The family of this 118-nucleotide sequence from Paenibacillus vortex is "Bacillus sRNA ncr1015". The source organism's lineage runs through Bacteria, Bacillota, Bacilli, Caryophanales and Paenibacillus vortex. The family's RNA type in Rfam is small RNA.
RNA sequence: UUAUAAGAUGAACUAACUUUGACUUUUUAUAAUACAUAGUCGUGAUCUGAUUAUAUCAUCGGGUCUGUUUAUACGCAAUAAAAAAAGAACCUGUUCAUUUAUCCAGGUUCUUUUUUUU
Dot-bracket structure: ...............................(((.(((.(((.................))).)..)).)))..........(((((((((((..........)))))))))))....